RNA: Alphaproteobacterial ar14
RNA sequence: UUCAGUUGCUGCGCCGACCUCCUCCCCGGCGCAAGCGUAUGGCGACGGUGUCACCUCCUCCCGGCACCGUCGUCACGUAUAACGUCGCCCCACCUCCUCCCGGGGUGCACGUUCGCU
Numbered sequence: 001u002u003c004a005g006u007u008g009c010u011g012c013g014c015c016g017a018c019c020u021c022c023u024c025c026c027c028g029g030c031g032c033a034a035g036c037g038u039a040u041g042g043c044g045a046c047g048g049u050g051u052c053a054c055c056u057c058c059u060c061c062c063g064g065c066a067c068c069g070u071c072g073u074c075a076c077g078u079a080u081a082a083c084g085u086c087g088c089c090c091c092a093c094c095u096c097c098u099c100c101c102g103g104g105g106u107g108c109a110c111g112u113u114c115g116c117u
Stems, first nucleotide, its partner, number of pairs: 007037003010033007041074010082112004086107006